A member of the RNA family "mir-548 microRNA precursor family" from Pan paniscus, 85 nucleotides long.
Pairs were carried over by alignment from the consensus structure, which was predicted with WAR.
Gene Ontology terms of the family: RISC complex and miRNA-mediated post-transcriptional gene silencing.
The match comes from Rfam's covariance-model search (100 bits).
For this family Rfam cites "Ultra-high throughput sequencing-based small RNA discovery and discrete statistical biomarker analysis in a collection of cervical tumours and matched controls" (Witten et al., BMC Biol, 2010).

RNA sequence: UAUUAGGUUGGUGCAAAAGUCAUUGCAGCUUUUGCCAUUGAAUUUCAAUGGCAAAAGCUGCAAUGACUUUUGCACCAACCUAAUA
Numbered sequence: 001u002a003u004u005a006g007g008u009u010g011g012u013g014c015a016a017a018a019g020u021c022a023u024u025g026c027a028g029c030u031u032u033u034g035c036c037a038u039u040g041a042a043u044u045u046c047a048a049u050g051g052c053a054a055a056a057g058c059u060g061c062a063a064u065g066a067c068u069u070u071u072g073c074a075c076c077a078a079c080c081u082a083a084u085a
Stems, first nucleotide, its partner, number of pairs: 001085040
Dot-bracket structure: ((((((((((((((((((((((((((((((((((((((((.....))))))))))))))))))))))))))))))))))))))))